[Rfam]
Background:
Shown here is a 249-nucleotide RNA from delta proteobacterium NaphS2, a member of the family "Group II catalytic intron D1-D4-6". Group II introns are found in rRNA, tRNA and mRNA of organelles in fungi, plants and protists, and also in mRNA in bacteria. The organism belongs to Deltaproteobacteria, within Bacteria.

RNA sequence: AAAGUCCCACCCGAGCAAAGGCUAGCCACCAGCUCGGUAGUGAAGUCCACGUGCAAGCCGGGCAACCGGAGUACGAAGCUGGACGGAGCAAGAAUCCAGGCUCUGUAUUGAGCCCCGAAAAUGGUAUAGUUGUGGUCAUUGGAUAAGCCUGUGAAUGCAGGCGAAAGCCGACGCCUUGGAGCGCGCGGAAGGCAGCAGACCUGGAUGCGACAUGGCAAGUGUCGAGGUCACCACCGGGGUCUGAGACCA
Numbered sequence: 001a002a003a004g005u006c007c008c009a010c011c012c013g014a015g016c017a018a019a020g021g022c023u024a025g026c027c028a029c030c031a032g033c034u035c036g037g038u039a040g041u042g043a044a045g046u047c048c049a050c051g052u053g054c055a056a057g058c059c060g061g062g063c064a065a066c067c068g069g070a071g072u073a074c075g076a077a078g079c080u081g082g083a084c085g086g087a088g089c090a091a092g093a094a095u096c097c098a099g100g101c102u103c104u105g106u107a108u109u110g111a112g113c114c115c116c117g118a119a120a121a122u123g124g125u126a127u128a129g130u131u132g133u134g135g136u137c138a139u140u141g142g143a144u145a146a147g148c149c150u151g152u153g154a155a156u157g158c159a160g161g162c163g164a165a166a167g168c169c170g171a172c173g174c175c176u177u178g179g180a181g182c183g184c185g186c187g188g189a190a191g192g193c194a195g196c197a198g199a200c201c202u203g204g205a206u207g208c209g210a211c212a213u214g215g216c217a218a219g220u221g222u223c224g225a226g227g228u229c230a231c232c233a234c235c236g237g238g239g240u241c242u243g244a245g246a247c248c249a
Base pairs, nucleotide, nucleotide: 012036013035014034015033016032020030021029023218025216026215038091040089041088045084046083047082050075051074052073053072054071058069059068060067061066109243110241112240113239114238115237116236117235132234133233134232135231136230167193168192169191172187173186174185198229199228200227201226202225204223205222206221207220208219

Pairs were carried over by alignment from the consensus structure.
Rfam 15.1 lists 1,617 matches to the family in 661 species.